[Rfam]
RNA sequence: AAUGGCAAUUGAUGAUUGUUGUCUUAUCCUACACACUGAUUAAUCGUGUUGAUUACAACUCCGCUUAUUGUCUGAUGCCACU
Numbered sequence: 001a002a003u004g005g006c007a008a009u010u011g012a013u014g015a016u017u018g019u020u021g022u023c024u025u026a027u028c029c030u031a032c033a034c035a036c037u038g039a040u041u042a043a044u045c046g047u048g049u050u051g052a053u054u055a056c057a058a059c060u061c062c063g064c065u066u067a068u069u070g071u072c073u074g075a076u077g078c079c080a081c082u
Stems, first nucleotide, its partner, number of pairs: 003080005
A member of the RNA family "Small nucleolar RNA R16" from Camellia sinensis, 82 nucleotides long.
It is annotated as a C/D-box small nucleolar RNA.
A reference for the family is Galardi et al. (2002), "Purified box C/D snoRNPs are able to reproduce site-specific 2'-O-methylation of target RNA in vitro", Mol Cell Biol.
The match comes from Rfam's covariance-model search (72 bits).